[Rfam]
The family of this 334-nucleotide RNA sequence from Mesoplasma syrphidae is "Bacterial RNase P class B". The organism belongs to Mesoplasma, within Bacteria. Pairs were carried over by alignment from the consensus structure, which is taken from published work. The literature on the family includes a 1999 paper in Nucleic Acids Res by Brown, "The Ribonuclease P Database".
RNA sequence: UUUGAGGGUCAAUCGCUAUACUUUAAAGAUAGUAUAGAGGAAAGUCCACGCUUGCACAAUCUGCGAUGAUUGUAGUGAUUAUGCUAGUUGAAAAAAUAAAACUAGGCAAUAUUUAUAUUGACGGCUUAACUAACCUAAGGGAAACUACGGUGAUGUUAUUAAAGUGCCACAGAGACGAUUAAAGGGAAACCUGGAAAUGGAACGCGGUAAACCCCAUAAGCAAGAAACUCAAAUUUUGGUAGAGGAGUUUAACUAAUAGAAAUGAAUAUUAGUUAGAAGCGAAAGCUAGAUAGAUGGUUGACACUGGGAACAGUACAAAACGUGGCUUAUUAUC
Number, nucleotide and partner (000 for none) at each position: 001u000002u000003u000004g334005a333006g000007g330008g302009u301010c300011a299012a298013u297014c296015g000016c037017u036018a035019u034020a033021c032022u000023u000024u000025a000026a000027a000028g000029a000030u000031a000032g021033u020034a019035u018036a017037g016038a000039g000040g000041a000042a328043a327044g326045u000046c325047c324048a323049c322050g321051c224052u223053u222054g221055c220056a073057c072058a071059a070060u069061c068062u000063g000064c000065g000066a000067u000068g061069a060070u059071u058072g057073u056074a000075g000076u000077g000078a000079u219080u218081a217082u216083g215084c105085u104086a103087g102088u101089u100090g000091a000092a000093a000094a000095a000096a000097u000098a000099a000100a089101a088102c087103u086104a085105g084106g122107c120108a119109a118110u117111a116112u000113u000114u000115a000116u111117a110118u109119u108120g107121a000122c106123g214124g213125c000126u000127u158128a000129a000130c000131u000132a000133a151134c150135c149136u000137a000138a000139g146140g145141g000142a000143a000144a000145c140146u139147a000148c000149g135150g134151u133152g000153a000154u000155g000156u000157u000158a127159u000160u000161a000162a000163a000164g212165u211166g208167c207168c206169a000170c000171a000172g000173a000174g000175a000176c000177g000178a000179u000180u000181a000182a000183a192184g191185g190186g000187a000188a000189a000190c185191c184192u183193g000194g000195a000196a000197a000198u000199g000200g000201a000202a000203c000204g000205c000206g168207g167208u166209a000210a000211a165212c164213c124214c123215c083216a082217u081218a080219a079220g055221c054222a053223a052224g051225a000226a000227a000228c244229u243230c242231a000232a000233a000234u000235u000236u000237u000238g000239g000240u000241a000242g230243a229244g228245g000246a000247g000248u277249u276250u275251a274252a273253c272254u271255a000256a000257u000258a000259g000260a000261a000262a000263u000264g000265a000266a000267u000268a000269u000270u000271a254272g253273u252274u251275a250276g249277a248278a287279g286280c285281g000282a000283a000284a000285g280286c279287u278288a000289g000290a000291u000292a000293g000294a000295u000296g014297g013298u012299u011300g010301a009302c008303a000304c313305u312306g311307g000308g000309a000310a000311c306312a305313g304314u000315a000316c000317a000318a000319a000320a000321c050322g049323u048324g047325g046326c044327u043328u042329a000330u007331u000332a000333u005334c004